Shown here is a 147-nucleotide part of an RNA from Heteramoeba clara, a member of the family "Eukaryotic small subunit ribosomal RNA".
RNA sequence: CCGCCCGUCGCUCCUACCGUUGGACUUGAAGGUGAGCUCGGUAGAGCCAGACCUCUGGUCAACGGCGAAACCGAACAAAUCUUCGUGUCUGUAGGAAGGAGAAGUCGUAACAAGGUUUUCGUAGGUGAACCUGCAGAAGGAUCAAGC
Numbered sequence: 001c002c003g004c005c006c007g008u009c010g011c012u013c014c015u016a017c018c019g020u021u022g023g024a025c026u027u028g029a030a031g032g033u034g035a036g037c038u039c040g041g042u043a044g045a046g047c048c049a050g051a052c053c054u055c056u057g058g059u060c061a062a063c064g065g066c067g068a069a070a071c072c073g074a075a076c077a078a079a080u081c082u083u084c085g086u087g088u089c090u091g092u093a094g095g096a097a098g099g100a101g102a103a104g105u106c107g108u109a110a111c112a113a114g115g116u117u118u119u120c121g122u123a124g125g126u127g128a129a130c131c132u133g134c135a136g137a138a139g140g141a142u143c144a145a146g147c
Stems, first nucleotide, its partner, number of pairs: 001114001003111001006107002009104001011101005017095002020091001022090004027085007036076001038074005046066003050060003116139004121134005

Source information: Lineage of the source: Eukaryota > Discoba > Tetramitia > Eutetramitea > Heteramoeba. On this family, see Yusupov et al., Science 2001: "Crystal structure of the ribosome at 5.5 A resolution". The sequence is in the family's curated seed alignment.